[Rfam]
RNA sequence: UAUUGAGUCCCUACUAUGUUCCAGGCACUGGGUAUCGUAGGUGCCUGGAACAUAGUAGGGACUCAAUA
Dot-bracket structure: (((((((((((((((((((((((((((((..........)))))))))))))))))))))))))))))

mir-3116 microRNA precursor family: a 68-nucleotide sequence from Homo sapiens.
Rfam links the family to the GO terms miRNA-mediated post-transcriptional gene silencing and RISC complex.